[Rfam]
Nucleotides: 348
Base pairs, nucleotide, nucleotide: 039054040053041052042051043050058196059195060194061193062192069189070188071187072186073185074184075183084175085174086173088172089171090170094110095109096108097107098106111157112156113155114154115153116152117151197212198211199210200209202224203223204222206220313329314328315327316326322342324340
Number, partner (000 for none) and nucleotide at each position: 001000u002000c003000a004000c005000u006000u007000c008000a009000c010000a011000u012000u013000a014000a015000g016000c017000c018000g019000g020000c021000a022000u023000c024000g025000c026000c027000u028000a029000u030000a031000u032000g033000g034000g035000c036000g037000g038000u039054g040053c041052c042051g043050g044000u045000u046000u047000c048000g049000g050043c051042c052041g053040g054039c055000u056000a057000u058196g059195g060194c061193g062192a063000u064000a065000a066000a067000c068000u069189g070188c071187g072186g073185c074184g075183u076000g077000c078000a079000a080000u081000a082000g083000g084175c085174g086173c087000a088172g089171c090170g091000g092000a093000c094110c095109c096108g097107g098106g099000g100000g101000c102000a103000g104000u105000a106098c107097c108096c109095g110094g111157c112156g113155g114154c115153u116152c117151c118000a119000c120000c121000a122000c123000c124000u125000c126000u127000u128000c129000c130000g131000u132000u133000c134000g135000u136000u137000g138000c139000g140000g141000g142000g143000g144000a145000a146000a147000u148000g149000a150000c151117g152116g153115g154114g155113c156112c157111g158000a159000a160000c161000c162000a163000g164000g165000a166000u167000c168000g169000a170090c171089g172088u173086g174085u175084g176000c177000u178000g179000a180000a181000a182000a183075g184074c185073g186072c187071u188070g189069u190000u191000u192062u193061c194060g195059c196058c197212c198211g199210g200209g201000c202224u203223g204222a205000g206220u207000a208000a209200c210199c211198c212197g213000c214000a215000a216000a217000u218000a219000g220206g221000c222204u223203c224202a225000c226000a227000a228000c229000a230000c231000a232000c233000a234000a235000g236000u237000g238000c239000c240000a241000a242000c243000g244000a245000c246000a247000a248000c249000g250000a251000a252000g253000c254000a255000c256000u257000u258000g259000c260000u261000c262000u263000c264000g265000c266000u267000g268000c269000g270000u271000a272000a273000u274000u275000c276000u277000a278000g279000g280000g281000c282000c283000u284000a285000a286000c287000g288000g289000c290000c291000u292000g293000a294000c295000g296000u297000u298000a299000c300000a301000a302000a303000g304000c305000c306000u307000a308000g309000a310000g311000c312000a313329c314328g315327g316326u317000u318000c319000g320000g321000a322342c323000c324340g325000a326316a327315c328314c329313g330000g331000g332000u333000a334000a335000c336000a337000g338000a339000a340324u341000c342322g343000g344000a345000a346000a347000c348000c